This 75-nucleotide sequence from Scleropages formosus belongs to the Rfam family "mir-551 microRNA precursor family".
Lineage of the source: Eukaryota > Craniata > Teleostei > Osteoglossomorpha > Scleropages.

[Rfam]
RNA sequence: AAGCCCUGGAAACCAAGCAUGGGUGAGGCCUGCGAAUACAAUAUCAUGGCGACCCAUCCUUGGUUUCUGAGGCUU
Numbered sequence: 001a002a003g004c005c006c007u008g009g010a011a012a013c014c015a016a017g018c019a020u021g022g023g024u025g026a027g028g029c030c031u032g033c034g035a036a037u038a039c040a041a042u043a044u045c046a047u048g049g050c051g052a053c054c055c056a057u058c059c060u061u062g063g064u065u066u067c068u069g070a071g072g073c074u075u
Base pairs, nucleotide, nucleotide: 002074003073004072005071007069009067010066011065012064013063014062016060017059021055022054023053024052028050029049030048